RNA sequence: AUGGAGCUUUGUUGGCAAAAAUCCAUCCAUGGCUCUUAAAAGAAGCAUGGAGGAUUGUGUGAGAGGGUUCUCACCCUUCACACUCCACCUCCUAAAGUUUGCUUAUGCUUUAGCUAUUGGCUUCUCUAAUCAAUAACCACAAAAGGGUAUGACACAUGGAGGAACAUAGUUCUCUCUAUGAGUGGCAUGAAGCAGAGAAGCAUUCUCCAUGAGCAGAGAAACUUUGGCUACAGCCAAGCAAACCGGCAAGUCACAAAAAGGCAAUGGACUACUCUUUCUCAUUAAGGGGUCCU
Numbered sequence: 001a002u003g004g005a006g007c008u009u010u011g012u013u014g015g016c017a018a019a020a021a022u023c024c025a026u027c028c029a030u031g032g033c034u035c036u037u038a039a040a041a042g043a044a045g046c047a048u049g050g051a052g053g054a055u056u057g058u059g060u061g062a063g064a065g066g067g068u069u070c071u072c073a074c075c076c077u078u079c080a081c082a083c084u085c086c087a088c089c090u091c092c093u094a095a096a097g098u099u100u101g102c103u104u105a106u107g108c109u110u111u112a113g114c115u116a117u118u119g120g121c122u123u124c125u126c127u128a129a130u131c132a133a134u135a136a137c138c139a140c141a142a143a144a145g146g147g148u149a150u151g152a153c154a155c156a157u158g159g160a161g162g163a164a165c166a167u168a169g170u171u172c173u174c175u176c177u178a179u180g181a182g183u184g185g186c187a188u189g190a191a192g193c194a195g196a197g198a199a200g201c202a203u204u205c206u207c208c209a210u211g212a213g214c215a216g217a218g219a220a221a222c223u224u225u226g227g228c229u230a231c232a233g234c235c236a237a238g239c240a241a242a243c244c245g246g247c248a249a250g251u252c253a254c255a256a257a258a259a260g261g262c263a264a265u266g267g268a269c270u271a272c273u274c275u276u277u278c279u280c281a282u283u284a285a286g287g288g289g290u291c292c293u
Base pairs, nucleotide, nucleotide: 059088060087097243098242099241100240101239102238117232267291268290269289270288
A member of the RNA family "Early nodulin 40" from Glycine max, 293 nucleotides long. Rfam links the family to the GO term nodulation. The match comes from Rfam's covariance-model search (163 bits). The literature on the family includes a 2007 paper in Nucleic Acids Res by Gultyaev and Roussis, "Identification of conserved secondary structures and expansion segments in enod40 RNAs reveals new enod40 homologues in plants". Rfam 15.1 lists 341 matches to the family in 193 species.